About this RNA: Shown here is a 369-nucleotide sequence from Desulforamulus profundi, a member of the family "Bacterial RNase P class B".
RNA sequence: UACAGCGGGUAGUCGCUGUUCCGUGUCAACGGAGCAGAGGAAAGUCGAGACACGCACACUUUGCUGAUGAAGCUAAAGGCCGCAAGGGGCCAAGAGGCCACGGCAGGUGUAAAAUGGUGCCCGGCGCAAGCCGGGGCAGGGUGACCUGACGACGGUGAAAGCAACUCUCUGAGUGGCAAGUAACCAUAAAGUGCCACAGAAACAAUGUCACCGGGCGACCGGUGAGUGCAAGGGUAAACUCCACCAGCGUGCAACCCAAAUAGGCAGGGGCGUUUUGUCACCUGCGGGUAGGGGCACCUCGCACCGGCGAGGAAGGAGAGAUCCUCUCCUUAGAUAGAUGACUACUAAAACAGAAUCUCGCUUACGGCU
Numbered sequence: 001u002a003c004a005g006c007g008g009g010u011a012g013u014c015g016c017u018g019u020u021c022c023g024u025g026u027c028a029a030c031g032g033a034g035c036a037g038a039g040g041a042a043a044g045u046c047g048a049g050a051c052a053c054g055c056a057c058a059c060u061u062u063g064c065u066g067a068u069g070a071a072g073c074u075a076a077a078g079g080c081c082g083c084a085a086g087g088g089g090c091c092a093a094g095a096g097g098c099c100a101c102g103g104c105a106g107g108u109g110u111a112a113a114a115u116g117g118u119g120c121c122c123g124g125c126g127c128a129a130g131c132c133g134g135g136g137c138a139g140g141g142u143g144a145c146c147u148g149a150c151g152a153c154g155g156u157g158a159a160a161g162c163a164a165c166u167c168u169c170u171g172a173g174u175g176g177c178a179a180g181u182a183a184c185c186a187u188a189a190a191g192u193g194c195c196a197c198a199g200a201a202a203c204a205a206u207g208u209c210a211c212c213g214g215g216c217g218a219c220c221g222g223u224g225a226g227u228g229c230a231a232g233g234g235u236a237a238a239c240u241c242c243a244c245c246a247g248c249g250u251g252c253a254a255c256c257c258a259a260a261u262a263g264g265c266a267g268g269g270g271c272g273u274u275u276u277g278u279c280a281c282c283u284g285c286g287g288g289u290a291g292g293g294g295c296a297c298c299u300c301g302c303a304c305c306g307g308c309g310a311g312g313a314a315g316g317a318g319a320g321a322u323c324c325u326c327u328c329c330u331u332a333g334a335u336a337g338a339u340g341a342c343u344a345c346u347a348a349a350a351c352a353g354a355a356u357c358u359c360g361c362u363u364a365c366g367g368c369u
Base pairs, nucleotide, nucleotide: 004369005368006367007365008346009345010344011343012342013341014340016037017036018035019034020033021032042363043362044361046360047359048358049357050356051251052250053249054248055247056110057109058108059107060106061105115246116245117244118243119242120135121134122133123132124131125130136150137148138147139146140145151241152240154185155184156183162176165173166172167171191239192238193235194234195233208225209224210223211222212221213220214219255269256268257267273312274311275310276309277308278307279306313331314330315329316328317327318326
Description
Rfam classes the family as a ribozyme. The family's consensus secondary structure is taken from published work. The organism belongs to Desulforamulus, within Bacteria. The literature on the family includes a 1998 paper in Annu Rev Biochem by Frank and Pace, "Ribonuclease P: unity and diversity in a tRNA processing ribozyme".